[Rfam]
RNA sequence: GUGUAUUACAGAGGCCGCGAUUAGUCAAGAGUACUUAAGGGGAAAGGGACUGUCGCCGAAAUAUACUAAAUGUAUAUUGGGGCUAUGCUGAACAAGUAUGGCACUGUCCGAAACAGACCCACUGUCUAGGGAGUGCUGUGAUACAU
Numbered sequence: 001g002u003g004u005a006u007u008a009c010a011g012a013g014g015c016c017g018c019g020a021u022u023a024g025u026c027a028a029g030a031g032u033a034c035u036u037a038a039g040g041g042g043a044a045a046g047g048g049a050c051u052g053u054c055g056c057c058g059a060a061a062u063a064u065a066c067u068a069a070a071u072g073u074a075u076a077u078u079g080g081g082g083c084u085a086u087g088c089u090g091a092a093c094a095a096g097u098a099u100g101g102c103a104c105u106g107u108c109c110g111a112a113a114c115a116g117a118c119c120c121a122c123u124g125u126c127u128a129g130g131g132a133g134u135g136c137u138g139u140g141a142u143a144c145a146u
Base pairs, nucleotide, nucleotide: 006141007140008139009138010137011136017056018055019054020053021052023051024050025049026048034041035040060078061077062076063075064074065073066072079105080104082102083101084100085099086098087097088096089095107131108130109129111127113125114124115123
Rfam assigns this 146-nucleotide RNA from Dethiosulfatibacter aminovorans to the family "Lysine riboswitch aptamer". A search with the family's covariance model found it, with a score of 70 bits.